[Rfam]
RNA sequence: CUGUUCCCUGGAGUUCCUCUGAUCACUUCAUUGGGGCUAUUUUACGACACUUGACACCGGGAAUUUGGUCCUACUGAAGUGUUUGGGGGAACUCUGGUAGACAG
Numbered sequence: 001c002u003g004u005u006c007c008c009u010g011g012a013g014u015u016c017c018u019c020u021g022a023u024c025a026c027u028u029c030a031u032u033g034g035g036g037c038u039a040u041u042u043u044a045c046g047a048c049a050c051u052u053g054a055c056a057c058c059g060g061g062a063a064u065u066u067g068g069u070c071c072u073a074c075u076g077a078a079g080u081g082u083u084u085g086g087g088g089g090a091a092c093u094c095u096g097g098u099a100g101a102c103a104g
Stems, first nucleotide, its partner, number of pairs: 005100001008097002011094010022084001024081007032073007
Dot-bracket structure: ....(..((.((((((((((.(.(((((((.(((((((............................))))))).)))))))..))))))))))).))..)....